L31-Gammaproteobacteria ribosomal protein leader: a 51-nucleotide sequence from Paraglaciecola sp. MB-3u-78. The literature on the family includes a 2020 paper in BMC Microbiol by Eckert and Weinberg, "Discovery of 20 novel ribosomal leader candidates in bacteria and archaea". It scores 53 bits against the family's covariance model. Rfam classes the family as a cis-regulatory leader. Lineage of the source: Bacteria > Pseudomonadati > Pseudomonadota > Alteromonadales > Paraglaciecola. The family is grouped with related families in Rfam's "Ribosomal Protein L31 Leader clan".
[Rfam]
RNA sequence: CGUAUGGUGUUCAACUUCGGGUUGGAUAGCGAUGCGGCCUGACGAAGAGGU
Numbered sequence: 001c002g003u004a005u006g007g008u009g010u011u012c013a014a015c016u017u018c019g020g021g022u023u024g025g026a027u028a029g030c031g032a033u034g035c036g037g038c039c040u041g042a043c044g045a046a047g048a049g050g051u
Stems, first nucleotide, its partner, number of pairs: 001036005007030002011025005